[Rfam]
RNA sequence: CGCAGCUUUGUCAAAUUCAGUGCUCCCUCCUUGGUGGGCUGCACUGGCCAAAAUGGCUGCAACAGUGACACUGUAGUUCAUGGGCCCCACUUUCCUUCACCGUGGAUCCUGGGGAUAAAAAUGUGCUGCAGACAAAA
Numbered sequence: 001c002g003c004a005g006c007u008u009u010g011u012c013a014a015a016u017u018c019a020g021u022g023c024u025c026c027c028u029c030c031u032u033g034g035u036g037g038g039c040u041g042c043a044c045u046g047g048c049c050a051a052a053a054u055g056g057c058u059g060c061a062a063c064a065g066u067g068a069c070a071c072u073g074u075a076g077u078u079c080a081u082g083g084g085c086c087c088c089a090c091u092u093u094c095c096u097u098c099a100c101c102g103u104g105g106a107u108c109c110u111g112g113g114g115a116u117a118a119a120a121a122u123g124u125g126c127u128g129c130a131g132a133c134a135a136a137a
Stems, first nucleotide, its partner, number of pairs: 002060004018046006026038003073129005078123001085114005
RNA: Small nucleolar RNA SNORA5